[Rfam]
RNA sequence: UCUUUAUCCAGAGUGGUGGAGGGAAAGGCCCUGUGAAACCACAGCAACCGGUUUGUCAACGCCGCAAGGCCCGUGCGAACGUCAGGUGCUAACUCCUACUUGCUGAUGCCUUUUUAAGGCGAACGCGGGAAAGAUGAGGA
Numbered sequence: 001u002c003u004u005u006a007u008c009c010a011g012a013g014u015g016g017u018g019g020a021g022g023g024a025a026a027g028g029c030c031c032u033g034u035g036a037a038a039c040c041a042c043a044g045c046a047a048c049c050g051g052u053u054u055g056u057c058a059a060c061g062c063c064g065c066a067a068g069g070c071c072c073g074u075g076c077g078a079a080c081g082u083c084a085g086g087u088g089c090u091a092a093c094u095c096c097u098a099c100u101u102g103c104u105g106a107u108g109c110c111u112u113u114u115u116a117a118g119g120c121g122a123a124c125g126c127g128g129g130a131a132a133g134a135u136g137a138g139g140a
Base pairs, nucleotide, nucleotide: 001140002139003138004137005136006135007134008133013042014041015040016039017038021031022030023029026097027096028095043090044089045088046087048086049085050083051082052081094132099129100128101127102126103125
The family of this 140-nucleotide RNA from Geoalkalibacter subterraneus is "SAM riboswitch aptamer (S box leader)".
The SAM riboswitch is found upstream of a number of genes which code for proteins involved in methionine or cysteine biosynthesis in Gram-positive bacteria.
The family's consensus secondary structure is taken from published work.
Its family is annotated with regulation of gene expression in the Gene Ontology.